[Rfam]
RNA: Small nucleolar RNA snoR138
RNA sequence: AUUGCCUCAGAAUAACCAGAAGGUUCAUGAAUACAAUGCCGUUUGGUUCAGACAGAGGCGUAGAUCAAUUCGAAUCGGUUUGAGAGAAAGGAAAAUUUCCCUUCCUUUCCUUUCCUAGAUAGAUUCGGAUAUUA
Numbered sequence: 001a002u003u004g005c006c007u008c009a010g011a012a013u014a015a016c017c018a019g020a021a022g023g024u025u026c027a028u029g030a031a032u033a034c035a036a037u038g039c040c041g042u043u044u045g046g047u048u049c050a051g052a053c054a055g056a057g058g059c060g061u062a063g064a065u066c067a068a069u070u071c072g073a074a075u076c077g078g079u080u081u082g083a084g085a086g087a088a089a090g091g092a093a094a095a096u097u098u099c100c101c102u103u104c105c106u107u108u109c110c111u112u113u114c115c116u117a118g119a120u121a122g123a124u125u126c127g128g129a130u131a132u133u134a
Base pairs, nucleotide, nucleotide: 003060004059005058006057007056008055014048015047016046017045018044019043020042023039024038071127072126073125074124075123076122078115082112083111084110086109089106090105091104092103093102